[Rfam]
RNA sequence: AUGUUCGGGUAAUCGCUGUACGACUUUUGUCUGCAGAGGAAAGUCCAUGCUCGCACAAGCUGAGAUGCUUGUAGUGUUUGUGCCUGACGAAAUCAUAAGUCAGGGUAGUCUGAAAAGGCUAACGGCAGGGAAAAUACCUACGUUCUCCUUGAAUAGGGUAUGAUUACCUUUAAAGUGCCACAGUGACGAUUUCAACUGGAAACAGUGGAAGUGGAACGGGGUAAACCCCACAAGCGAGCAACCCAAAUAAUGGUAGGGGCACUCUCCCAGAGGGAAUUCAACCAAGGGAGGGACAAGCACAGGAUGCUUGUAGAUAGAUGAUUACUACCGGAGUACGAGGCCUUGACAGCCGUUGGAGUACGAAGGAACAAAACAUGGCUUACAGAA
Numbered sequence: 001a002u003g004u005u006c007g008g009g010u011a012a013u014c015g016c017u018g019u020a021c022g023a024c025u026u027u028u029g030u031c032u033g034c035a036g037a038g039g040a041a042a043g044u045c046c047a048u049g050c051u052c053g054c055a056c057a058a059g060c061u062g063a064g065a066u067g068c069u070u071g072u073a074g075u076g077u078u079u080g081u082g083c084c085u086g087a088c089g090a091a092a093u094c095a096u097a098a099g100u101c102a103g104g105g106u107a108g109u110c111u112g113a114a115a116a117g118g119c120u121a122a123c124g125g126c127a128g129g130g131a132a133a134a135u136a137c138c139u140a141c142g143u144u145c146u147c148c149u150u151g152a153a154u155a156g157g158g159u160a161u162g163a164u165u166a167c168c169u170u171u172a173a174a175g176u177g178c179c180a181c182a183g184u185g186a187c188g189a190u191u192u193c194a195a196c197u198g199g200a201a202a203c204a205g206u207g208g209a210a211g212u213g214g215a216a217c218g219g220g221g222u223a224a225a226c227c228c229c230a231c232a233a234g235c236g237a238g239c240a241a242c243c244c245a246a247a248u249a250a251u252g253g254u255a256g257g258g259g260c261a262c263u264c265u266c267c268c269a270g271a272g273g274g275a276a277u278u279c280a281a282c283c284a285a286g287g288g289a290g291g292g293a294c295a296a297g298c299a300c301a302g303g304a305u306g307c308u309u310g311u312a313g314a315u316a317g318a319u320g321a322u323u324a325c326u327a328c329c330g331g332a333g334u335a336c337g338a339g340g341c342c343u344u345g346a347c348a349g350c351c352g353u354u355g356g357a358g359u360a361c362g363a364a365g366g367a368a369c370a371a372a373a374c375a376u377g378g379c380u381u382a383c384a385g386a387a
Base pairs, nucleotide, nucleotide: 004387005386006385007383008326009325010324011323012322013321014320016036017035018034019033020032041381042380043379045378046377047376048375049374050238051237052236053235054234055072056071057070058069059068060067078233079232080231081230082229083104084103085102086101087100088099105123106121107120108119109118110117111116124228125227127169128168129167135160136159137158138157142154143153144152175226176225177222178221179220191210192209193208195206196205197204198203242258243257244256262292263291264290265289266288267287268286293311294310295309296308297307298306328366329365333361334360335359336358

Bacterial RNase P class B: a 387-nucleotide RNA sequence from Virgibacillus sp. MSP4-1. By type it is a ribozyme. Clan: RNaseP clan. A reference for the family is Frank and Pace (1998), "Ribonuclease P: unity and diversity in a tRNA processing ribozyme", Annu Rev Biochem. The organism belongs to Virgibacillus, within Bacteria. About the family: Ribonuclease P (RNase P) is a ubiquitous endoribonuclease, found in archaea, bacteria and eukarya as well as chloroplasts and mitochondria. Its best characterised activity is the generation of mature 5'-ends of tRNAs by cleaving the 5'-leader elements of precursor-tRNAs. Cellular RNase Ps are ribonucleoproteins. RNA from bacterial RNase Ps retains its catalytic activity in the absence of the protein subunit, i.e. it is a ribozyme.